RNA sequence: CCUUAUAUUUGGCAAAUCAGUGGAAACGCUGAGACGCAAAGCUACGGGUCUAAGGGCGUCUGCCUAUGAUCGCCGGGUUGCUAAC
Numbered sequence: 001c002c003u004u005a006u007a008u009u010u011g012g013c014a015a016a017u018c019a020g021u022g023g024a025a026a027c028g029c030u031g032a033g034a035c036g037c038a039a040a041g042c043u044a045c046g047g048g049u050c051u052a053a054g055g056g057c058g059u060c061u062g063c064c065u066a067u068g069a070u071c072g073c074c075g076g077g078u079u080g081c082u083a084a085c
Stems, first nucleotide, its partner, number of pairs: 012037002017032006040079004045075003048070003055064003
RNA: c-di-GMP-I riboswitch aptamer
Organism: Alicyclobacillus acidoterrestris